[Rfam]
This 199-nucleotide sequence from Nomascus leucogenys belongs to the Rfam family "Connexin-43 internal ribosome entry site (IRES)".
From the family's description: This family represents the connexin-43 internal ribosome entry site (IRES) which allows cap independent translation during conditions such as heat shock and stress.
Rfam 15.1 lists 657 matches to the family in 497 species.
A search with the family's covariance model found it, with a score of 199 bits.
Lineage of the source: Eukaryota > Chordata > Theria > Eutheria > Nomascus.

RNA sequence: AGCUUUUAUGAGGUAUCAGCACUUUUCUUUCAUCGGGGGAAGGGGUGAGGAAAGUACCAAACAGCAGCGGAGUUUUAAACUUUAAACAGACAGGUCUGAGUGCCUGAACUUGCCUUUUCAUUUUACUUCAUCCUCCAAGGAGUUCAAUCACUUGGCAUGACUUCACUUCUUUUAAGUAAAAGAGUGGUGCCCAGGCAAC
Numbered sequence: 001a002g003c004u005u006u007u008a009u010g011a012g013g014u015a016u017c018a019g020c021a022c023u024u025u026u027c028u029u030u031c032a033u034c035g036g037g038g039g040a041a042g043g044g045g046u047g048a049g050g051a052a053a054g055u056a057c058c059a060a061a062c063a064g065c066a067g068c069g070g071a072g073u074u075u076u077a078a079a080c081u082u083u084a085a086a087c088a089g090a091c092a093g094g095u096c097u098g099a100g101u102g103c104c105u106g107a108a109c110u111u112g113c114c115u116u117u118u119c120a121u122u123u124u125a126c127u128u129c130a131u132c133c134u135c136c137a138a139g140g141a142g143u144u145c146a147a148u149c150a151c152u153u154g155g156c157a158u159g160a161c162u163u164c165a166c167u168u169c170u171u172u173u174a175a176g177u178a179a180a181a182g183a184g185u186g187g188u189g190c191c192c193a194g195g196c197a198a199c
Stems, first nucleotide, its partner, number of pairs: 002020003007015003029142003033138001035136005040128003047122002050119001052118003069097003073093002098113001100111001102109001151195005158189002161182003165177004